[Rfam]
RNA sequence: GGGGUUGUAGCUCAGUGGUAGAGCACUUGCCUUGAAAGCAUGAGGUACUGGGUUCAAUUCUUAGCACCA
Numbered sequence: 001g002g003g004g005u006u007g008u009a010g011c012u013c014a015g016u017g018g019u020a021g022a023g024c025a026c027u028u029g030c031c032u033u034g035a036a037a038g039c040a041u042g043a044g045g046u047a048c049u050g051g052g053u054u055c056a057a058u059u060c061u062u063a064g065c066a067c068c069a
Stems, first nucleotide, its partner, number of pairs: 004068001006066002010024004026042001028040003048064005

A member of the RNA family "tRNA" from Marmota marmota, 69 nucleotides long. The family's consensus secondary structure is taken from published work. Transfer RNA (tRNA) molecules are approximately 80 nucleotides in length. Its family is annotated with triplet codon-amino acid adaptor activity in the Gene Ontology.